[Rfam]
RNA sequence: CCGUGCUAAGCGGGGGGUUGGUGGUCCCCUGAACCCGAAAUCCACCUAGCGGGGCUUAAUUCCCCUACUGAGGUAUCUGAGGUCUGAAAACGGUUUUCACUAAGACGUUGAAGGCCGAGUCCCACGCAACAACUACCUGUGAACCGGGUCAGGUCCGGAAGGAAGCAGCCCUAAGCAGGCAAGUGUGUGCCGUGGGGGUACUCGACCUGAGUCUGAUGUGGAGAUACGCUCAGGUCUCAGAGAAUCGAAGCAGGGGUGCACGG
Numbered sequence: 001c002c003g004u005g006c007u008a009a010g011c012g013g014g015g016g017g018u019u020g021g022u023g024g025u026c027c028c029c030u031g032a033a034c035c036c037g038a039a040a041u042c043c044a045c046c047u048a049g050c051g052g053g054g055c056u057u058a059a060u061u062c063c064c065c066u067a068c069u070g071a072g073g074u075a076u077c078u079g080a081g082g083u084c085u086g087a088a089a090a091c092g093g094u095u096u097u098c099a100c101u102a103a104g105a106c107g108u109u110g111a112a113g114g115c116c117g118a119g120u121c122c123c124a125c126g127c128a129a130c131a132a133c134u135a136c137c138u139g140u141g142a143a144c145c146g147g148g149u150c151a152g153g154u155c156c157g158g159a160a161g162g163a164a165g166c167a168g169c170c171c172u173a174a175g176c177a178g179g180c181a182a183g184u185g186u187g188u189g190c191c192g193u194g195g196g197g198g199u200a201c202u203c204g205a206c207c208u209g210a211g212u213c214u215g216a217u218g219u220g221g222a223g224a225u226a227c228g229c230u231c232a233g234g235u236c237u238c239a240g241a242g243a244a245u246c247g248a249a250g251c252a253g254g255g256g257u258g259c260a261c262g263g
Base pairs, nucleotide, nucleotide: 001263002262003261004260005259006258008057009056010055011054012030013029014028015027016026017025018024019023034053035052036051037050062256063255064254065253066252068250069249072246073245074244076242078239079238080237081236082235083234084233085232086231087230091228092227093225094224095223096222097221098220101218102217104213105212106211112208113207114206116204117203118202119201120200121196122195123194124193125192126191127187128186130185131184136179137178138177139176140175146171147170148169149168154163155162156161

The family of this 263-nucleotide sequence from Thermosipho sp. 1063 is "Bacterial large signal recognition particle RNA". About the family: The signal recognition particle (SRP) is a universally conserved ribonucleoprotein involved in the co-translational targeting of proteins to membranes. On this family, see Regalia et al., Nucleic Acids Res 2002: "Prediction of signal recognition particle RNA genes". Rfam links the family to the GO terms SRP-dependent cotranslational protein targeting to membrane, signal sequence recognition and signal recognition particle, plasma membrane targeting. Pairs were carried over by alignment from the consensus structure, which is taken from published work. The organism belongs to Thermosipho, within Bacteria.